[Rfam]
RNA sequence: UUCGUGUCUUAACCACUUAUUAAGGUUUUUGCAGGAUAACUGGGGCAUCCAGUUCUCUCUGGAUGUCGAGUGGCUCCUAUCCACUCUGUUUGACGCCUCCCUGUUAGACUUCGAGCCGCCCUCGGCGGCUCAAUUUUU
Numbered sequence: 001u002u003c004g005u006g007u008c009u010u011a012a013c014c015a016c017u018u019a020u021u022a023a024g025g026u027u028u029u030u031g032c033a034g035g036a037u038a039a040c041u042g043g044g045g046c047a048u049c050c051a052g053u054u055c056u057c058u059c060u061g062g063a064u065g066u067c068g069a070g071u072g073g074c075u076c077c078u079a080u081c082c083a084c085u086c087u088g089u090u091u092g093a094c095g096c097c098u099c100c101c102u103g104u105u106a107g108a109c110u111u112c113g114a115g116c117c118g119c120c121c122u123c124g125g126c127g128g129c130u131c132a133a134u135u136u137u138u
Stems, first nucleotide, its partner, number of pairs: 001044004005015002021036001025032002048063004068086006092105004111133001113131008